[Rfam]
The record is a 91-nucleotide RNA sequence from Dorcoceras hygrometricum, which matches "small nucleolar RNA snoR117" in Rfam.
RNA sequence: GGCCGUUGAUGCAGAUUAAUUGUCCGUACCAUCUGAAGGUCUUUUCAUAAGAUUCCUCUGAUGUGAUUUCUACAUCCAAUUCCUGAGGUCU
Numbered sequence: 001g002g003c004c005g006u007u008g009a010u011g012c013a014g015a016u017u018a019a020u021u022g023u024c025c026g027u028a029c030c031a032u033c034u035g036a037a038g039g040u041c042u043u044u045u046c047a048u049a050a051g052a053u054u055c056c057u058c059u060g061a062u063g064u065g066a067u068u069u070c071u072a073c074a075u076c077c078a079a080u081u082c083c084u085g086a087g088g089u090c091u
Stems, first nucleotide, its partner, number of pairs: 001090004
A search with the family's covariance model found it, with a score of 50 bits. The source organism's lineage runs through Eukaryota, Magnoliopsida, Gunneridae, Loxocarpinae and Dorcoceras. A reference for the family is Chen and Wu (2009), "Mining small RNA sequencing data: a new approach to identify small nucleolar RNAs in Arabidopsis", Nucleic Acids Res.